The family of this 88-nucleotide sequence from Austrofundulus limnaeus is "Small nucleolar RNA SNORD60". Taxonomically the source falls in Austrofundulus (Eukaryota, Acanthomorphata, Euacanthomorphacea, Ovalentaria). Its family is annotated with nucleolus and RNA processing in the Gene Ontology.

[Rfam]
Nucleotides: 088
Stems, first nucleotide, its partner, number of pairs: 001087004051059003
Number, partner (000 for none) and nucleotide at each position: 001087a002086g003085c004084c005000u006000g007000g008000g009000a010000u011000g012000a013000c014000a015000a016000a017000c018000u019000a020000a021000a022000a023000a024000a025000a026000u027000a028000c029000u030000u031000u032000u033000c034000u035000g036000a037000c038000a039000c040000c041000u042000a043000c044000u045000a046000u047000g048000a049000g050000a051059g052058c053057u054000u055000c056000c057053a058052g059051c060000u061000c062000c063000c064000u065000g066000a067000u068000u069000c070000u071000a072000a073000c074000u075000u076000u077000a078000a079000u080000c081000u082000g083000a084004g085003g086002c087001u088000c